[Rfam]
RNA: Small nucleolar RNA SNORA57
RNA sequence: CCUCCUCUUCUUGGCGGAGGUCGUGCAUGUGGUUCCGGUCCCCAUGAGGCACGGAGACAGAGGGAAAGGGUUCUGGCCCCGCUUGGCAUCAGGUCUUCAGUGCCGAUGGCUUCUAGCCUGUGGUUCUAUCCUCAAGAGCCAUGACACUG
Number, nucleotide and partner (000 for none) at each position: 001c000002c056003u055004c054005c053006u000007c000008u000009u000010c000011u000012u000013g000014g000015c000016g043017g042018a000019g040020g039021u000022c037023g036024u000025g034026c000027a000028u000029g000030u000031g000032g000033u000034u025035c000036c023037g022038g000039u020040c019041c000042c017043c016044a000045u000046g000047a000048g000049g000050c000051a000052c000053g005054g004055a003056g002057a000058c000059a000060g000061a000062g000063g000064g000065a000066a000067a000068g000069g000070g000071u000072u000073c000074u000075g000076g000077c000078c000079c000080c000081g000082c000083u000084u141085g140086g139087c138088a000089u136090c000091a000092g000093g000094u000095c000096u000097u000098c000099a000100g000101u000102g000103c123104c122105g121106a000107u120108g119109g118110c000111u000112u000113c000114u000115a000116g000117c000118c109119u108120g107121u105122g104123g103124u000125u000126c000127u000128a000129u000130c000131c000132u000133c000134a000135a000136g089137a000138g087139c086140c085141a084142u000143g000144a000145c000146a000147c000148u000149g000